The family of this 278-nucleotide RNA sequence from Verticillium longisporum is "Fungal signal recognition particle RNA". A search with the family's covariance model found it, with a score of 152 bits. Gene Ontology terms of the family: signal recognition particle, endoplasmic reticulum targeting, SRP-dependent cotranslational protein targeting to membrane, signal sequence recognition and signal recognition particle, plasma membrane targeting.

RNA sequence: GGCUGUAGUGGCCCAACGGGGAAAGUUCUCGCAAUUCUCGUCCGGCCUGAUCCAAACCCAGUUCGAACCACCCCCCAGCUGGCGCCCAGCACGAAUGCCGCGGUGGCCGUCCACUCGCUUGGGUAACCAGCGAUGCUGCGUGCGGCCCUAAGCAAUGAAGGUGACACUUGAGGGAGGCUUCACUCUGCAGAGGCACCUUCACCGUCGCAUGGCGUGCUGGAUUACGAUCGCUGGGGGCUUGGGUUAGUCGGACGAGGUGGAGAUGACGACUUCUUUUU
Numbered sequence: 001g002g003c004u005g006u007a008g009u010g011g012c013c014c015a016a017c018g019g020g021g022a023a024a025g026u027u028c029u030c031g032c033a034a035u036u037c038u039c040g041u042c043c044g045g046c047c048u049g050a051u052c053c054a055a056a057c058c059c060a061g062u063u064c065g066a067a068c069c070a071c072c073c074c075c076c077a078g079c080u081g082g083c084g085c086c087c088a089g090c091a092c093g094a095a096u097g098c099c100g101c102g103g104u105g106g107c108c109g110u111c112c113a114c115u116c117g118c119u120u121g122g123g124u125a126a127c128c129a130g131c132g133a134u135g136c137u138g139c140g141u142g143c144g145g146c147c148c149u150a151a152g153c154a155a156u157g158a159a160g161g162u163g164a165c166a167c168u169u170g171a172g173g174g175a176g177g178c179u180u181c182a183c184u185c186u187g188c189a190g191a192g193g194c195a196c197c198u199u200c201a202c203c204g205u206c207g208c209a210u211g212g213c214g215u216g217c218u219g220g221a222u223u224a225c226g227a228u229c230g231c232u233g234g235g236g237g238c239u240u241g242g243g244u245u246a247g248u249c250g251g252a253c254g255a256g257g258u259g260g261a262g263a264u265g266a267c268g269a270c271u272u273c274u275u276u277u278u
Stems, first nucleotide, its partner, number of pairs: 001013003018275005025267003029263002034258001035256003041252004047247009061068002073237002076233004081228001083226002086220008095210004100205004105147001107145004111138001112135001115133005121128002148152001156201007167192003174185003
Dot-bracket structure: (((.......)))....(((((..(((.((...((((...((((..(((((((((.....((....))....((.((((.(.((.((((((((.((((.((((.(.((((((..(((((.((....))))))).)..)...)))).)(...)...(((((((....(((....(((......)))....)))..))))))))))).))))..))))))))....)).).))))..)).))))))))).)))).))).)...)).)))...)))))...